Rfam assigns this 223-nucleotide RNA from Streptosporangium album to the family "Actinobacteria sRNA Ms_IGR-5". The source organism's lineage runs through Bacteria, Actinomycetota, Actinomycetes, Streptosporangiales and Streptosporangium. By type it is a small RNA. The base pairs follow the family's consensus structure. The literature on the family includes a 2013 paper in RNA by Li et al., "Identification of small RNAs in Mycobacterium smegmatis using heterologous Hfq".

RNA sequence: ACGCCGAAAGGAGGUGGUCCGAAUAAUGGUUGAUCAUAAUUGGGCUAGCGAGGUGGCUGUCCGCUAGGACGCCGCGACUCCGGACUCUGUCCGGACGUCUGGCGACGUUCGGCGAAUCCAUACAAUCACCGGAACCCCGGGCUGCCAGAGGGCGGGUCAUCUCGCCUUUGGUCCAUCUGGCCCUCCUGCACGGCAGGAGGAGCAGGCCCGGGGUUCUUCCCUU
Numbered sequence: 001a002c003g004c005c006g007a008a009a010g011g012a013g014g015u016g017g018u019c020c021g022a023a024u025a026a027u028g029g030u031u032g033a034u035c036a037u038a039a040u041u042g043g044g045c046u047a048g049c050g051a052g053g054u055g056g057c058u059g060u061c062c063g064c065u066a067g068g069a070c071g072c073c074g075c076g077a078c079u080c081c082g083g084a085c086u087c088u089g090u091c092c093g094g095a096c097g098u099c100u101g102g103c104g105a106c107g108u109u110c111g112g113c114g115a116a117u118c119c120a121u122a123c124a125a126u127c128a129c130c131g132g133a134a135c136c137c138c139g140g141g142c143u144g145c146c147a148g149a150g151g152g153c154g155g156g157u158c159a160u161c162u163c164g165c166c167u168u169u170g171g172u173c174c175a176u177c178u179g180g181c182c183c184u185c186c187u188g189c190a191c192g193g194c195a196g197g198a199g200g201a202g203c204a205g206g207c208c209c210g211g212g213g214u215u216c217u218u219c220c221c222u223u
Base pairs, nucleotide, nucleotide: 013061014060015059016058017057018056062114063113064112065111067109068108070104071103072102073101076099077098078097131217132216133215134214135213136212137211138210139209140208141207142206143205145197146196148194